Shown here is a 68-nucleotide RNA from Collimonas fungivorans, a member of the family "Betaproteobacteria toxic small RNA". The organism belongs to Collimonas fungivorans, within Bacteria. About the family: Overexpression in amino aid rich medium attenuates growth, suggesting role in repressing amino acid intake and metabolism. The match comes from Rfam's covariance-model search (54 bits).

RNA sequence: UGUCUCCUCCACCCCUCCACAGGAGUGGAUUUAAACCCGACGCCACAGCGCAGUUCGGGUUUUCUUUU
Numbered sequence: 001u002g003u004c005u006c007c008u009c010c011a012c013c014c015c016u017c018c019a020c021a022g023g024a025g026u027g028g029a030u031u032u033a034a035a036c037c038c039g040a041c042g043c044c045a046c047a048g049c050g051c052a053g054u055u056c057g058g059g060u061u062u063u064c065u066u067u068u
Stems, first nucleotide, its partner, number of pairs: 008029005014023002034061007